Annotation:
The family of this 53-nucleotide RNA from Actibacterium atlanticum is "ffh sRNA". The source organism's lineage runs through Bacteria, Pseudomonadati, Pseudomonadota, Rhodobacterales and Actibacterium. On this family, see Meyer et al., BMC Genomics 2009: "Identification of candidate structured RNAs in the marine organism 'Candidatus Pelagibacter ubique'".
[Rfam]
RNA sequence: AUGGCCCAGGAUCGCCCCCCGUCAGCGAGGAUUCGCCCACGGGGGACAUUGGC
Numbered sequence: 001a002u003g004g005c006c007c008a009g010g011a012u013c014g015c016c017c018c019c020c021g022u023c024a025g026c027g028a029g030g031a032u033u034c035g036c037c038c039a040c041g042g043g044g045g046a047c048a049u050u051g052g053c
Stems, first nucleotide, its partner, number of pairs: 016045007025036004